[Rfam]
RNA sequence: AGUAAAGGGAAGCUCAGUGCUGAGUCCACCUACAGAGUGCUGAUGUUACUCUCUAAAGCUUACCUUGGGGAAGGUCUGAGAUUAGAGCCACUUACUGUCCUCACAGGACAUUGCUUGACUAAAGCAAGUGAGUACCCACAACACAACACCUGUUUCCUAUCCAAUGCAAAGAUGUAGAACGUACAGGGUGUCCACCUACAGAUGCAAAGGAAACAGGCUUGGAAGUGACUCAUGGCUGGCAUCUUCAAGUUCAAUGGCUGUCAGGAGGCAGAUGCUUCCCAACCCAAUUCAGACUACUCUCCCUCUACU
Numbered sequence: 001a002g003u004a005a006a007g008g009g010a011a012g013c014u015c016a017g018u019g020c021u022g023a024g025u026c027c028a029c030c031u032a033c034a035g036a037g038u039g040c041u042g043a044u045g046u047u048a049c050u051c052u053c054u055a056a057a058g059c060u061u062a063c064c065u066u067g068g069g070g071a072a073g074g075u076c077u078g079a080g081a082u083u084a085g086a087g088c089c090a091c092u093u094a095c096u097g098u099c100c101u102c103a104c105a106g107g108a109c110a111u112u113g114c115u116u117g118a119c120u121a122a123a124g125c126a127a128g129u130g131a132g133u134a135c136c137c138a139c140a141a142c143a144c145a146a147c148a149c150c151u152g153u154u155u156c157c158u159a160u161c162c163a164a165u166g167c168a169a170a171g172a173u174g175u176a177g178a179a180c181g182u183a184c185a186g187g188g189u190g191u192c193c194a195c196c197u198a199c200a201g202a203u204g205c206a207a208a209g210g211a212a213a214c215a216g217g218c219u220u221g222g223a224a225g226u227g228a229c230u231c232a233u234g235g236c237u238g239g240c241a242u243c244u245u246c247a248a249g250u251u252c253a254a255u256g257g258c259u260g261u262c263a264g265g266a267g268g269c270a271g272a273u274g275c276u277u278c279c280c281a282a283c284c285c286a287a288u289u290c291a292g293a294c295u296a297c298u299c300u301c302c303c304u305c306u307a308c309u
Base pairs, nucleotide, nucleotide: 001309002308003307004306008302009301010300015260016259017258018257021067022066023065024064035051036050037049038048039047040045076292077291078290079289080288086237087236088235089234096110097109098108099107100106111127112126113125114124115123116122128233129232130231131230132229133228149217150216151215152214153213154212155211156210157209264279265278266277267276268275269274